[Rfam]
RNA sequence: ACAGGUUCGAGGCCUCAGCAGAAGCGCUCAUGGCACGGCCCUGUCAGAUUCCAGCUGAUCUGCAAAUUCAGCU
Numbered sequence: 001a002c003a004g005g006u007u008c009g010a011g012g013c014c015u016c017a018g019c020a021g022a023a024g025c026g027c028u029c030a031u032g033g034c035a036c037g038g039c040c041c042u043g044u045c046a047g048a049u050u051c052c053a054g055c056u057g058a059u060c061u062g063c064a065a066a067u068u069c070a071g072c073u
Stems, first nucleotide, its partner, number of pairs: 009041001011040004017073003021069003024036001026034001045062006

Background: Mammalian CPEB3 ribozyme: a 73-nucleotide RNA sequence from Alligator sinensis. Lineage of the source: Eukaryota > Bilateria > Craniata > Archelosauria > Alligator. A search with the family's covariance model found it, with a score of 46 bits. The literature on the family includes a 2006 paper in Science by Salehi-Ashtiani et al., "A genomewide search for ribozymes reveals an HDV-like sequence in the human CPEB3 gene".